Source information: Microsporidia small subunit ribosomal RNA: a 592-nucleotide part of an RNA from Amblyospora rugosa. Rfam links the family to the GO terms structural constituent of ribosome and ribosome. The organism belongs to Amblyospora, within Eukaryota.
[Rfam]
RNA sequence: UGACGGAAGGACACCACAAGGAGUGGAGUGUGCGGGUUAAUUUGACUCAACGCGGGAAAACUUACCCGGGCAGGCAAUAGUCUUGAGAUGCUGAUGCAGAUGACAUUGCGCGUGGUGCAUGGCCGUUCUUAACACGUGGGGUGACCUGUCUGGUCAAAUCUGAUAACGCGUGAGAGGUGAUUAGUCAUACGCCAAGUUUAGCUUUGUGUGUGAUUAGACGAUGUGUGUAAGCACAAGGAAGAUGCACCCAAUAACAGGUCUGUGAUGCCCGUAGAUGUCCGGGGCUCCACGCGCACUACAAUGGAAGACAGUAAGUAUAGAUAGUAGUUUUUCGUAGUUGGGAUUGACGUAUGUAAUUAUGUCAUGAACUUGGAAUUCCUAGUAGUUGGUAGUCAUUAACGACCGACGAAUAAGUCCCUGUUCUUUGUACACACCGCCCGUCGUUAUCUAAGAUGGAAGUGCGGGUGAAGAUGUGAAUUGCUCUGUGCAUGCACGUGAGUGAGUGUACAGAUUACUGAAAAGGCUUGCCUUUGAAGUUAGGCAUGAGCAUAAGAACCCGUGCAGCUAGAUUGGAUGUAAGUCGUAACAAGGU
Numbered sequence: 001u002g003a004c005g006g007a008a009g010g011a012c013a014c015c016a017c018a019a020g021g022a023g024u025g026g027a028g029u030g031u032g033c034g035g036g037u038u039a040a041u042u043u044g045a046c047u048c049a050a051c052g053c054g055g056g057a058a059a060a061c062u063u064a065c066c067c068g069g070g071c072a073g074g075c076a077a078u079a080g081u082c083u084u085g086a087g088a089u090g091c092u093g094a095u096g097c098a099g100a101u102g103a104c105a106u107u108g109c110g111c112g113u114g115g116u117g118c119a120u121g122g123c124c125g126u127u128c129u130u131a132a133c134a135c136g137u138g139g140g141g142u143g144a145c146c147u148g149u150c151u152g153g154u155c156a157a158a159u160c161u162g163a164u165a166a167c168g169c170g171u172g173a174g175a176g177g178u179g180a181u182u183a184g185u186c187a188u189a190c191g192c193c194a195a196g197u198u199u200a201g202c203u204u205u206g207u208g209u210g211u212g213a214u215u216a217g218a219c220g221a222u223g224u225g226u227g228u229a230a231g232c233a234c235a236a237g238g239a240a241g242a243u244g245c246a247c248c249c250a251a252u253a254a255c256a257g258g259u260c261u262g263u264g265a266u267g268c269c270c271g272u273a274g275a276u277g278u279c280c281g282g283g284g285c286u287c288c289a290c291g292c293g294c295a296c297u298a299c300a301a302u303g304g305a306a307g308a309c310a311g312u313a314a315g316u317a318u319a320g321a322u323a324g325u326a327g328u329u330u331u332u333c334g335u336a337g338u339u340g341g342g343a344u345u346g347a348c349g350u351a352u353g354u355a356a357u358u359a360u361g362u363c364a365u366g367a368a369c370u371u372g373g374a375a376u377u378c379c380u381a382g383u384a385g386u387u388g389g390u391a392g393u394c395a396u397u398a399a400c401g402a403c404c405g406a407c408g409a410a411u412a413a414g415u416c417c418c419u420g421u422u423c424u425u426u427g428u429a430c431a432c433a434c435c436g437c438c439c440g441u442c443g444u445u446a447u448c449u450a451a452g453a454u455g456g457a458a459g460u461g462c463g464g465g466u467g468a469a470g471a472u473g474u475g476a477a478u479u480g481c482u483c484u485g486u487g488c489a490u491g492c493a494c495g496u497g498a499g500u501g502a503g504u505g506u507a508c509a510g511a512u513u514a515c516u517g518a519a520a521a522g523g524c525u526u527g528c529c530u531u532u533g534a535a536g537u538u539a540g541g542c543a544u545g546a547g548c549a550u551a552a553g554a555a556c557c558c559g560u561g562c563a564g565c566u567a568g569a570u571u572g573g574a575u576g577u578a579a580g581u582c583g584u585a586a587c588a589a590g591g592u
Stems, first nucleotide, its partner, number of pairs: 001431002003428003007425007016415002020379005025299001027297008035288002041056004065283007077107001080104003089098003111271002114269004120265001121263001122259003125255003132171002135168003138147003151162003177247003209216002219238001222235005303333006340369001345364007385407006392400001436587001439583002442580001445576007454567003459562008471550003